[Rfam]
RNA: Plastid-psbA-1 3UTR RNA
Organism: Nicotiana attenuata
RNA sequence: UAGAAGUGGAUAUAAAGGCCUUGUAGGAGGAUGAUAAGAAGUUUUGAAAAGAAAGGAGCAAUAAUCAUUUUCUUGUUUUAUCAAGAGGGUGCUAUUGCUCCUUU
Numbered sequence: 001u002a003g004a005a006g007u008g009g010a011u012a013u014a015a016a017g018g019c020c021u022u023g024u025a026g027g028a029g030g031a032u033g034a035u036a037a038g039a040a041g042u043u044u045u046g047a048a049a050a051g052a053a054a055g056g057a058g059c060a061a062u063a064a065u066c067a068u069u070u071u072c073u074u075g076u077u078u079u080a081u082c083a084a085g086a087g088g089g090u091g092c093u094a095u096u097g098c099u100c101c102u103u104u
Stems, first nucleotide, its partner, number of pairs: 052104012066091003070087005